Shown here is an 80-nucleotide RNA sequence from Olsenella sp. oral taxon 809, a member of the family "aspS RNA". It is annotated as a cis-regulatory element. The base pairs follow the family's consensus structure, which is taken from published work.
[Rfam]
RNA sequence: GCGCGCCGGUGCCGUCUACGCCGGGACGCCGUCAUCUGUAGGUCCGCCCGCAACGGCACGGGGCGGAAGAGGCGAGAGGA
Numbered sequence: 001g002c003g004c005g006c007c008g009g010u011g012c013c014g015u016c017u018a019c020g021c022c023g024g025g026a027c028g029c030c031g032u033c034a035u036c037u038g039u040a041g042g043u044c045c046g047c048c049c050g051c052a053a054c055g056g057c058a059c060g061g062g063g064c065g066g067a068a069g070a071g072g073c074g075a076g077a078g079g080a
Stems, first nucleotide, its partner, number of pairs: 001029003006024006031073003036069002043067007